[Rfam]
RNA sequence: AAAGCAGGCUGCAAUUGCAGUGCUCCAUUCUGUGGGAGUACUGUCAUUUUCCUGCGGAGAGCAAUUCUGUUAAUGUCAUCUCUGGUUUUACCGGUGUGUUGGUGAAACCAUUUGUCCUUAACAUGUACAAGU
Numbered sequence: 001a002a003a004g005c006a007g008g009c010u011g012c013a014a015u016u017g018c019a020g021u022g023c024u025c026c027a028u029u030c031u032g033u034g035g036g037a038g039u040a041c042u043g044u045c046a047u048u049u050u051c052c053u054g055c056g057g058a059g060a061g062c063a064a065u066u067c068u069g070u071u072a073a074u075g076u077c078a079u080c081u082c083u084g085g086u087u088u089u090a091c092c093g094g095u096g097u098g099u100u101g102g103u104g105a106a107a108c109c110a111u112u113u114g115u116c117c118u119u120a121a122c123a124u125g126u127a128c129a130a131g132u
Stems, first nucleotide, its partner, number of pairs: 004055005018043009066125001068123006075116001083110012
Source information: The record is a 132-nucleotide sequence from Struthio camelus, which matches "Small nucleolar RNA SNORA69" in Rfam. The family's RNA type in Rfam is H/ACA-box small nucleolar RNA. Lineage of the source: Eukaryota > Tetrapoda > Saurischia > Aves > Struthio camelus.